The record is a 58-nucleotide RNA, which matches "psbNH RNA" in Rfam.
[Rfam]
RNA sequence: GGGUGAGGUUCGGUCUGGAUACUGUAGGGGCCAUGGCCCGGAACGGGUCGAACCUGUC
Numbered sequence: 001g002g003g004u005g006a007g008g009u010u011c012g013g014u015c016u017g018g019a020u021a022c023u024g025u026a027g028g029g030g031c032c033a034u035g036g037c038c039c040g041g042a043a044c045g046g047g048u049c050g051a052a053c054c055u056g057u058c
Stems, first nucleotide, its partner, number of pairs: 027055003034050007